[Rfam]
RNA sequence: GGCCGUUGAUGUGAGAAACGAUAUUUGCUACUCUUGAUAGGGGACAUAAAUAAUCCUCUUAUCUGAUGAUUCCUAUCCACCAAGAUCUCUGAGGCC
Numbered sequence: 001g002g003c004c005g006u007u008g009a010u011g012u013g014a015g016a017a018a019c020g021a022u023a024u025u026u027g028c029u030a031c032u033c034u035u036g037a038u039a040g041g042g043g044a045c046a047u048a049a050a051u052a053a054u055c056c057u058c059u060u061a062u063c064u065g066a067u068g069a070u071u072c073c074u075a076u077c078c079a080c081c082a083a084g085a086u087c088u089c090u091g092a093g094g095c096c
Stems, first nucleotide, its partner, number of pairs: 001096004
A member of the RNA family "Small nucleolar RNA SNORD24" from Carya illinoinensis, 96 nucleotides long. The match comes from Rfam's covariance-model search (54 bits). Rfam 15.1 lists 2,843 matches to the family in 1,188 species. The family's consensus secondary structure was predicted with PFOLD. Rfam links the family to the GO terms RNA processing and nucleolus.